The record is a 99-nucleotide RNA from Morella rubra, which matches "Small nucleolar RNA Z266" in Rfam. The family's RNA type in Rfam is C/D-box small nucleolar RNA. The family has 11 seed sequences and 719 matches in Rfam 15.1. The source organism's lineage runs through Eukaryota, Embryophyta, Spermatophyta, Pentapetalae and Morella. Gene Ontology terms of the family: nucleolus and RNA processing.

[Rfam]
RNA sequence: UAGUGGCAAGAAUGAUGAAUCAAUUAGAUGUGUGAAAGGAGAAUUCCUUCCUGAACUCAAUUUUUGAGCCAUAUUUAAUUGUCUGACUAUUUGCCUCUG
Numbered sequence: 001u002a003g004u005g006g007c008a009a010g011a012a013u014g015a016u017g018a019a020u021c022a023a024u025u026a027g028a029u030g031u032g033u034g035a036a037a038g039g040a041g042a043a044u045u046c047c048u049u050c051c052u053g054a055a056c057u058c059a060a061u062u063u064u065u066g067a068g069c070c071a072u073a074u075u076u077a078a079u080u081g082u083c084u085g086a087c088u089a090u091u092u093g094c095c096u097c098u099g
Stems, first nucleotide, its partner, number of pairs: 001099003005095005010087001